Shown here is a 275-nucleotide RNA from Nannospalax galili, a member of the family "Mason-Pfizer monkey virus packaging signal". A reference for the family is Mustafa et al. (2004), "Mutational analysis of the predicted secondary RNA structure of the Mason-Pfizer monkey virus packaging signal", Virus Res. The match comes from Rfam's covariance-model search (140 bits). It is annotated as a cis-regulatory element. The organism belongs to Nannospalax, within Eukaryota.
RNA sequence: UGGCGCCCAAUGUGGGGUUUGGAUACUGAGGCAGCAGUGAGGGAGACUAUGUGAAAAGGAACCCAUUGGACAAAUUUUGAGACACAUCAGAGUUGCUGGGAACCUGCCUCUGCUGAAACCGAAAGUAAGUGGAAACGUCCGAUCAUGGGGCAAGAAUUGAGUCAGCAUGAGCUUUAUGUUAAGCAGUUAAAGGACGCUUUAAAGACACGGGGAGUAAAGGUUAAGACUAUGGAUUUGUUUCAUUUUUUUUUAUUUUGUUAAAGAAAUUUGUCCCU
Numbered sequence: 001u002g003g004c005g006c007c008c009a010a011u012g013u014g015g016g017g018u019u020u021g022g023a024u025a026c027u028g029a030g031g032c033a034g035c036a037g038u039g040a041g042g043g044a045g046a047c048u049a050u051g052u053g054a055a056a057a058g059g060a061a062c063c064c065a066u067u068g069g070a071c072a073a074a075u076u077u078u079g080a081g082a083c084a085c086a087u088c089a090g091a092g093u094u095g096c097u098g099g100g101a102a103c104c105u106g107c108c109u110c111u112g113c114u115g116a117a118a119c120c121g122a123a124a125g126u127a128a129g130u131g132g133a134a135a136c137g138u139c140c141g142a143u144c145a146u147g148g149g150g151c152a153a154g155a156a157u158u159g160a161g162u163c164a165g166c167a168u169g170a171g172c173u174u175u176a177u178g179u180u181a182a183g184c185a186g187u188u189a190a191a192g193g194a195c196g197c198u199u200u201a202a203a204g205a206c207a208c209g210g211g212g213a214g215u216a217a218a219g220g221u222u223a224a225g226a227c228u229a230u231g232g233a234u235u236u237g238u239u240u241c242a243u244u245u246u247u248u249u250u251u252a253u254u255u256u257g258u259u260a261a262a263g264a265a266a267u268u269u270g271u272c273c274c275u
Base pairs, nucleotide, nucleotide: 006031007030012026013025014024036048037047038046084126085125087122088121093117094115095114098108099107136150138149139148140147141146158201159200160199161197162196209250210249211248212247213246214245218236219235220234221233222232260275263272264271

The family has 9 seed sequences and 2,921 matches in Rfam 15.1.